[Rfam]
A member of the RNA family "Repression of heat shock gene expression (ROSE) element" from Pseudomonas sp. HLS-6, 64 nucleotides long. The pairing is the family consensus, mapped onto this sequence. Gene Ontology terms of the family: regulation of translation and response to temperature stimulus. The family's RNA type in Rfam is RNA thermoregulator. Lineage of the source: Bacteria > Pseudomonadati > Pseudomonadales > Pseudomonadaceae > Pseudomonas. A search with the family's covariance model found it, with a score of 62 bits. A reference for the family is Krajewski et al. (2013), "Short ROSE-Like RNA Thermometers Control IbpA Synthesis in Pseudomonas Species", PLoS One.
RNA sequence: UACGCGAUGCCGAAUUCGGGUCGCGUUGAAUCCCUCGCUGAUUAUCAGGAGAUGUACCAUGACG
Dot-bracket structure: .(((((((.(((....))))))))))..(....(((.((((...))))))).)...........